[Rfam]
RNA sequence: AAGUAGCCACGACUAAUGGAUACUGCCUAAAAUAGGCAACCCAUCCCCGCGAAGUAAUACUUUGCGGUGAUCCCGCGGGGAAUGUGGUGUGUGAGUGGGGGGUGAGUUUAGUACGUAGGUGCUGACGGAGUCAGCAAAUCGUGCAUACGGUUGGCCCGGGCCAUCAGUAUCUUAUGAAGAUUUUCACCUCCGUGC
Numbered sequence: 001a002a003g004u005a006g007c008c009a010c011g012a013c014u015a016a017u018g019g020a021u022a023c024u025g026c027c028u029a030a031a032a033u034a035g036g037c038a039a040c041c042c043a044u045c046c047c048c049g050c051g052a053a054g055u056a057a058u059a060c061u062u063u064g065c066g067g068u069g070a071u072c073c074c075g076c077g078g079g080g081a082a083u084g085u086g087g088u089g090u091g092u093g094a095g096u097g098g099g100g101g102g103u104g105a106g107u108u109u110a111g112u113a114c115g116u117a118g119g120u121g122c123u124g125a126c127g128g129a130g131u132c133a134g135c136a137a138a139u140c141g142u143g144c145a146u147a148c149g150g151u152u153g154g155c156c157c158g159g160g161c162c163a164u165c166a167g168u169a170u171c172u173u174a175u176g177a178a179g180a181u182u183u184u185c186a187c188c189u190c191c192g193u194g195c
Stems, first nucleotide, its partner, number of pairs: 042069004047064001074194003098191008111144005120136006146169003150165001
RNA: R2 RNA element